[Rfam]
RNA sequence: UCGCCAUCCCCGGGGAGCCAUGUGGCUGAGAGGCAGGUGUAACGCCCUGCGACCCGCUGAACCUGAAACCGUUAAUACGGGCGUAGGGAGGGAGCGGCCAUAGCGA
Numbered sequence: 001u002c003g004c005c006a007u008c009c010c011c012g013g014g015g016a017g018c019c020a021u022g023u024g025g026c027u028g029a030g031a032g033g034c035a036g037g038u039g040u041a042a043c044g045c046c047c048u049g050c051g052a053c054c055c056g057c058u059g060a061a062c063c064u065g066a067a068a069c070c071g072u073u074a075a076u077a078c079g080g081g082c083g084u085a086g087g088g089a090g091g092g093a094g095c096g097g098c099c100a101u102a103g104c105g106a
Base pairs, nucleotide, nucleotide: 007093008092009091010090011056012055013054014053017026018025019024033050034049035048036047037046062087063086064085065084069080070079071078

The family of this 106-nucleotide sequence from Sphingobium fluviale is "TPP riboswitch aptamer (THI element)".